Rfam assigns this 77-nucleotide sequence to the family "Small nucleolar RNA Z102/R77". The match comes from Rfam's covariance-model search (41 bits). Its Rfam clan is "SNORD44 clan". By type it is a C/D-box small nucleolar RNA.
RNA sequence: UGCUGAUAUGAUGACUAGAAUAACUUGAUAGCCAAUAUGAUGGUUAUUUAUCAUGUAUUAGCUCUAGCUGAUCAGGC
Numbered sequence: 001u002g003c004u005g006a007u008a009u010g011a012u013g014a015c016u017a018g019a020a021u022a023a024c025u026u027g028a029u030a031g032c033c034a035a036u037a038u039g040a041u042g043g044u045u046a047u048u049u050a051u052c053a054u055g056u057a058u059u060a061g062c063u064c065u066a067g068c069u070g071a072u073c074a075g076g077c
Stems, first nucleotide, its partner, number of pairs: 003075003027047001030045004